[Rfam]
RNA sequence: AGGUUCUUCGAAGACUUGCUAAUGAGGUUACCAACGGAGAUUCUGAUAUCUCGUCUUCACCUUAGGGAAAGUCCCCAGACCUGGAGCAGAGAGUGUUGUCGAUAAGAAUUACAUCUCGUUCUCUAACCUCGGUAUUUGCGGUGAAGCCUUUCGGCCGAGCUAGGGGUGAGACGAGUGGCUGUCACACUUAAAGAGAGAUGCAAGUGGUGUACGUCUGCGCUAACACAAUGGGGAUUACUCUCGGAGAACU
Numbered sequence: 001a002g003g004u005u006c007u008u009c010g011a012a013g014a015c016u017u018g019c020u021a022a023u024g025a026g027g028u029u030a031c032c033a034a035c036g037g038a039g040a041u042u043c044u045g046a047u048a049u050c051u052c053g054u055c056u057u058c059a060c061c062u063u064a065g066g067g068a069a070a071g072u073c074c075c076c077a078g079a080c081c082u083g084g085a086g087c088a089g090a091g092a093g094u095g096u097u098g099u100c101g102a103u104a105a106g107a108a109u110u111a112c113a114u115c116u117c118g119u120u121c122u123c124u125a126a127c128c129u130c131g132g133u134a135u136u137u138g139c140g141g142u143g144a145a146g147c148c149u150u151u152c153g154g155c156c157g158a159g160c161u162a163g164g165g166g167u168g169a170g171a172c173g174a175g176u177g178g179c180u181g182u183c184a185c186a187c188u189u190a191a192a193g194a195g196a197g198a199u200g201c202a203a204g205u206g207g208u209g210u211a212c213g214u215c216u217g218c219g220c221u222a223a224c225a226c227a228a229u230g231g232g233g234a235u236u237a238c239u240c241u242c243g244g245a246g247a248a249c250u
Base pairs, nucleotide, nucleotide: 002250003249004248005247006246007245008244009243010242011241014205015204016203017202018201019200023064024063025062026061027060028059037052038051039050040049041048069236070235073233074232075231076230085097086096087095088094098112099111101110102109103108115175116174117173118172119171121170122169123168127166128165129164130163136162138160139159146155147154148153207220208219209218210217211216